A member of the RNA family "Bacterial large subunit ribosomal RNA" from Ketobacter alkanivorans, 359 nucleotides of a longer RNA. Rfam links the family to the GO terms structural constituent of ribosome and ribosome. The source organism's lineage runs through Bacteria, Pseudomonadota, Pseudomonadales, Ketobacteraceae and Ketobacter. A search with the family's covariance model found it, with a score of 2861 bits.
RNA sequence: UGAGAGAACUCGGGUGAAGGAACUAGGCAAAAUGGUGCCGUAACUUCGGGAGAAGGCACGCUGCUGACCGUGAAGGACUUGCUCCGUAAGCGGACGGCAGUCGCAGAUACUAGGUCCCUGCAACUGUUUAUUAAAAACACAGCACUGUGCAAACACGAAAGUGGACGUAUACGGUGUGACGCCUGCCCGGUGCCGGAAGGUUAAUUGAUGGGGUUAUCUUCGGAGAAGCUCUUGAUCGAAGCCCCGGUAAACGGCGGCCGUAACUAUAACGGUCCUAAGGUAGCGAAAUUCCUUGUCGGGUAAGUUCCGACCUGCACGAAUGGCGUAAUGAUGGGGACGCUGUCUCCACCCGAGACUCA
Dot-bracket structure: ((((....((((((((.(((..............(((((....(....).....)))))(((((((.((((..................)))).)))))))(...).......(((((((((..(((.........)))..(((((((((...(((....)))...)..))))))))..((((.(((..(((((((..(((........(((((..((....))...)))))........))))))))..)))))((((((.......))))))(...).....(.........((((((.....))))))).........))))...)).)))))))....))).)))))))).))))
Pairs were carried over by alignment from the consensus structure, which is taken from published work.